[Rfam]
RNA sequence: CCGUGCUAAGCGGGGAGGUAGCGGUGCCCUGUACUCGCAAUCCGCUAUAGCGAGGCCGAAUCCCCAUCCGAGGUGAUGCGGCCUUAGGGUCUGCCUUAUGUGAGUGGUGUUGACACCCAGGUCCUGCGCAACGGGAACCAGUGAAUCCUGUCAGGUCCGGAAGGAAGCAGCAGUAAGCUGUCUCUCCCGUGUGCCGUGGGAGUGCCUGGGUCGAGCCAUAACCAUAAGUAACGCUUAGGGCCACAUCAUCGAAGAUGGGUGCACGG
Number, nucleotide and partner (000 for none) at each position: 001c266002c265003g264004u263005g262006c261007u000008a000009a000010g056011c055012g030013g029014g028015g027016a000017g025018g000019u023020a000021g000022c000023g019024g000025u017026g000027c015028c014029c013030u012031g000032u000033a000034c054035u053036c052037g051038c050039a000040a000041u000042c000043c000044g000045c000046u000047a000048u000049a000050g038051c037052g036053a035054g034055g011056c010057c000058g000059a000060a000061u000062c000063c259064c258065c257066a256067u255068c254069c000070g000071a000072g250073g249074u248075g247076a246077u000078g000079c000080g242081g241082c240083c239084u238085u237086a236087g235088g234089g000090u000091c000092u230093g229094c000095c228096u227097u226098a225099u224100g223101u000102g000103a000104g222105u221106g217107g216108u215109g000110u000111u000112g000113a000114c000115a211116c210117c209118c208119a207120g206121g205122u204123c200124c199125u198126g197127c196128g195129c191130a190131a000132c189133g188134g187135g186136a185137a000138c000139c180140a179141g178142u177143g000144a000145a000146u000147c000148c173149u172150g171151u170152c000153a000154g000155g000156u165157c164158c163159g000160g000161a000162a000163g158164g157165a156166a000167g000168c000169a000170g151171c150172a149173g148174u000175a000176a000177g142178c141179u140180g139181u000182c000183u000184c000185u136186c135187c134188c133189g132190u130191g129192u000193g000194c000195c128196g127197u126198g125199g124200g123201a000202g000203u000204g122205c121206c120207u119208g118209g117210g116211u115212c000213g000214a000215g108216c107217c106218a000219u000220a000221a105222c104223c100224a099225u098226a097227a096228g095229u093230a092231a000232c000233g000234c088235u087236u086237a085238g084239g083240g082241c081242c080243a000244c000245a000246u076247c075248a074249u073250c072251g000252a000253a000254g068255a067256u066257g065258g064259g063260u000261g006262c005263a004264c003265g002266g001
RNA: Bacterial large signal recognition particle RNA
Organism: Halobacillus karajensis